Shown here is a 98-nucleotide sequence from Saccharopolyspora phatthalungensis, a member of the family "TPP riboswitch aptamer (THI element)".
[Rfam]
Nucleotides: 098
Stems, first nucleotide, its partner, number of pairs: 006086005011048004016042001017034005054079003060073004
Number, partner (000 for none) and nucleotide at each position: 001000g002000g003000a004000a005000g006086u007085g008084a009083c010082g011048c012047g013046g014045g015000g016042u017034g018033c019032c020031c021030g022000a023000c024000a025000a026000c027000u028000g029000c030021c031020g032019g033018g034017c035000u036000g037000a038000g039000a040000a041000c042016a043000g044000a045014c046013c047012c048011g049000u050000u051000g052000a053000a054079c055078c056077u057000g058000a059000c060073c061072u062071a063070g064000c065000u066000c067000g068000u069000a070063c071062u072061a073060g074000c075000g076000g077056a078055g079054g080000g081000a082010c083009g084008u085007c086006a087000u088000g089000g090000u091000u092000c093000c094000c095000a096000a097000u098000g
Taxonomically the source falls in Saccharopolyspora (Bacteria, Actinomycetes, Pseudonocardiales, Pseudonocardiaceae).